[Rfam]
RNA: c-di-AMP riboswitch aptamer (ydaO/yuaA leader)
RNA sequence: CGCGCGCACGCGCCGAAUCCCGUAGGGAACCGGGGAACCAAUCCUUGGGGUGAAUCGGACGCCUUUCGAGGCGCCCGUAGGAGACCUUCCUGCUCCGAACCCGUCAGCUAACCCGGUAGGCGAGAAGGAAGGAAAGG
Number, nucleotide and partner (000 for none) at each position: 001c000002g000003c000004g000005c000006g000007c000008a000009c000010g000011c122012g121013c120014c119015g000016a000017a000018u028019c027020c026021c000022g000023u000024a000025g000026g020027g019028a018029a117030c116031c115032g114033g113034g112035g000036a000037a000038c000039c047040a046041a000042u000043c000044c000045u000046u040047g039048g102049g101050g100051u000052g000053a000054a000055u000056c077057g076058g075059a000060c000061g000062c000063c000064u000065u000066u000067c000068g000069a000070g000071g000072c000073g000074c000075c058076c057077g056078u000079a000080g096081g095082a094083g093084a000085c000086c000087u000088u000089c000090c000091u000092g000093c083094u082095c081096c080097g000098a000099a000100c050101c049102c048103g000104u000105c000106a000107g000108c000109u000110a000111a000112c034113c033114c032115g031116g030117u029118a000119g014120g013121c012122g011123a000124g000125a000126a000127g000128g000129a000130a000131g000132g000133a000134a000135a000136g000137g000